[Rfam]
RNA sequence: ACUAUUUUAAACUUAGUCUGGAUACUACAAAAGAUAGUCUGCAUAUUUAAGAAUAUGCUCGCUGUAAAUUUGUAGUGUUCAGAUUGAGUUUAGAAUGGUCA
Numbered sequence: 001a002c003u004a005u006u007u008u009a010a011a012c013u014u015a016g017u018c019u020g021g022a023u024a025c026u027a028c029a030a031a032a033g034a035u036a037g038u039c040u041g042c043a044u045a046u047u048u049a050a051g052a053a054u055a056u057g058c059u060c061g062c063u064g065u066a067a068a069u070u071u072g073u074a075g076u077g078u079u080c081a082g083a084u085u086g087a088g089u090u091u092a093g094a095a096u097g098g099u100c101a
Base pairs, nucleotide, nucleotide: 001099002098003097004096009091010090011089012088013087014086015085016084017083018082019081020080021079022078023077024076025075026074027073028072029071030070031069040061041060044057045056046055048053